[Rfam]
RNA sequence: GGACCUCAGAUCAAGCGAGAUUACCCGCUAAAUUUAAGCAUAUAAAUAAGCGGUGGAAAAGAAACCAAAAGGGAUACCCUUAGUAACGGCGAGCGAAAGGGGUAGAGCUCAGCGCCAAGUCCUGUCGUCAUUGGGCGUACAGGAGAUGCGGCGUGAAUCCAGCAGUGCAUCGUACUUUGUCUCGGUAAUGCAAGUUCCUCUGACAAGGACUUUUCCAUAGCGGGUGCUAGGCCCAUAGCGUUACCAGACUUUGUGCGCAAACUGUUGAAUACUAGAGUCACGUUGCUUGAGAGUGCAGCGUAAAGCAGGUGGUAAACUCCACCUAAGGCUAAAUAUUACAGCGAGACCGAUAGCAAACAAGUACCGUGAGGGAAAGUUGCAAAGAACUUUGAAGAGAGAGUUCAAAAGGACGUGAAACCGUCAGUAGGCAAA
Numbered sequence: 001g002g003a004c005c006u007c008a009g010a011u012c013a014a015g016c017g018a019g020a021u022u023a024c025c026c027g028c029u030a031a032a033u034u035u036a037a038g039c040a041u042a043u044a045a046a047u048a049a050g051c052g053g054u055g056g057a058a059a060a061g062a063a064a065c066c067a068a069a070a071g072g073g074a075u076a077c078c079c080u081u082a083g084u085a086a087c088g089g090c091g092a093g094c095g096a097a098a099g100g101g102g103u104a105g106a107g108c109u110c111a112g113c114g115c116c117a118a119g120u121c122c123u124g125u126c127g128u129c130a131u132u133g134g135g136c137g138u139a140c141a142g143g144a145g146a147u148g149c150g151g152c153g154u155g156a157a158u159c160c161a162g163c164a165g166u167g168c169a170u171c172g173u174a175c176u177u178u179g180u181c182u183c184g185g186u187a188a189u190g191c192a193a194g195u196u197c198c199u200c201u202g203a204c205a206a207g208g209a210c211u212u213u214u215c216c217a218u219a220g221c222g223g224g225u226g227c228u229a230g231g232c233c234c235a236u237a238g239c240g241u242u243a244c245c246a247g248a249c250u251u252u253g254u255g256c257g258c259a260a261a262c263u264g265u266u267g268a269a270u271a272c273u274a275g276a277g278u279c280a281c282g283u284u285g286c287u288u289g290a291g292a293g294u295g296c297a298g299c300g301u302a303a304a305g306c307a308g309g310u311g312g313u314a315a316a317c318u319c320c321a322c323c324u325a326a327g328g329c330u331a332a333a334u335a336u337u338a339c340a341g342c343g344a345g346a347c348c349g350a351u352a353g354c355a356a357a358c359a360a361g362u363a364c365c366g367u368g369a370g371g372g373a374a375a376g377u378u379g380c381a382a383a384g385a386a387c388u389u390u391g392a393a394g395a396g397a398g399a400g401u402u403c404a405a406a407a408g409g410a411c412g413u414g415a416a417a418c419c420g421u422c423a424g425u426a427g428g429c430a431a432a
Stems, first nucleotide, its partner, number of pairs: 024055001025053005035042002065072002076103005087093001106330004113153004119147001120144006158268002161265001163264004174254002179249002184245007194210001196209004216220001223233002280301007307324005364371002387398004
Description
A member of the RNA family "Eukaryotic large subunit ribosomal RNA" from Medioppia subpectinata, 432 nucleotides of a longer RNA. The family has 88 seed sequences and 107,465 matches in Rfam 15.1. NCBI's taxonomy places the organism under Eukaryota, Bilateria, Acariformes, Oribatida, Medioppia. It scores 3017 bits against the family's covariance model.